RNA sequence: UGCAUAUGAUGUAACGAUAUUGCUAUCUUAAUGACGAUGAUGACAAUAUCCCACCAAGAUCGCUGAUGCA
Numbered sequence: 001u002g003c004a005u006a007u008g009a010u011g012u013a014a015c016g017a018u019a020u021u022g023c024u025a026u027c028u029u030a031a032u033g034a035c036g037a038u039g040a041u042g043a044c045a046a047u048a049u050c051c052c053a054c055c056a057a058g059a060u061c062g063c064u065g066a067u068g069c070a
Base pairs, nucleotide, nucleotide: 001070002069003068004067

A member of the RNA family "Small nucleolar RNA SNORD24" from Takifugu rubripes, 70 nucleotides long. The base pairs follow the family's consensus structure, which was predicted with PFOLD.